[Rfam]
RNA: ffh sRNA
Organism: Plantimonas leprariae
RNA sequence: GGCGCCGGAGGUCAACAUCCGCCAGCGAGUCUCGCCCGCGGAUGCGGCUUUG
Numbered sequence: 001g002g003c004g005c006c007g008g009a010g011g012u013c014a015a016c017a018u019c020c021g022c023c024a025g026c027g028a029g030u031c032u033c034g035c036c037c038g039c040g041g042a043u044g045c046g047g048c049u050u051u052g
Base pairs, nucleotide, nucleotide: 016044017043018042019041020040021039022038025035026034027033028032
Dot-bracket structure: ...............(((((((..((((...))))..)))))))........